A member of the RNA family "Plastid-rps12 3UTR RNA" from Rhodiola rosea, 87 nucleotides long. By type it is a cis-regulatory element. Rfam's curators write: Plastid rpl20 is a non-coding RNA (ncRNA) recognised in plastids. It was found in the three prime untranslated region (3UTR) of rps12 gene, its 3UTR location sugest a role in transcript maduration. On this family, see Richter et al., Plant Commun 2023: "Retrograde signaling in plants: A critical review focusing on the GUN pathway and beyond".

[Rfam]
RNA sequence: GGUUUCCGUUGGUGCAAAUCCAAUAAGCUGAGAAGCAAUUCCCCAUUGGUAACAAAUGGUUAUUUAUUAAGCGGGGGAAAUCCUAUU
Numbered sequence: 001g002g003u004u005u006c007c008g009u010u011g012g013u014g015c016a017a018a019u020c021c022a023a024u025a026a027g028c029u030g031a032g033a034a035g036c037a038a039u040u041c042c043c044c045a046u047u048g049g050u051a052a053c054a055a056a057u058g059g060u061u062a063u064u065u066a067u068u069a070a071g072c073g074g075g076g077g078a079a080a081u082c083c084u085a086u087u
Stems, first nucleotide, its partner, number of pairs: 009023004041076004045067002048064006
Background
Pairs were carried over by alignment from the consensus structure, which was predicted with LocARNA. It is one of the family's seed sequences. The source organism's lineage runs through Eukaryota, Streptophyta, Streptophytina, Crassulaceae and Rhodiola.